RNA sequence: GGUCAUGAGCAUCAGCACCAAGCCCCGGCUGGCUGAUCAGCAACCCUCCUUCCGCGGUGGGGUGCUCCGGGUGAUGACCCGGUUGUGUGUCCGGCAUCGAUACGAUGCGCGGCGCAUGGCAAGCGCGGGUC
Numbered sequence: 001g002g003u004c005a006u007g008a009g010c011a012u013c014a015g016c017a018c019c020a021a022g023c024c025c026c027g028g029c030u031g032g033c034u035g036a037u038c039a040g041c042a043a044c045c046c047u048c049c050u051u052c053c054g055c056g057g058u059g060g061g062g063u064g065c066u067c068c069g070g071g072u073g074a075u076g077a078c079c080c081g082g083u084u085g086u087g088u089g090u091c092c093g094g095c096a097u098c099g100a101u102a103c104g105a106u107g108c109g110c111g112g113c114g115c116a117u118g119g120c121a122a123g124c125g126c127g128g129g130u131c
Stems, first nucleotide, its partner, number of pairs: 001079004009038001011037006021030002039066003044062003048057002082120010

The record is a 131-nucleotide sequence from Gordonia asplenii, which matches "SAM (S-adenosyl methionine) riboswitch aptamer" in Rfam. The base pairs follow the family's consensus structure, which is taken from published work. About the family: SAM-IV is a mRNA element that regulates gene expression via direct sensing of S-adenosylmethionine (SAM or AdoMet). SAM-IV riboswitches share conserved nucleotide positions with the previously described SAM-I riboswitches sequence analysis and molecular recognition experiments suggest that SAM-I and SAM-IV riboswitches share similar ligand binding sites, but have different scaffolds.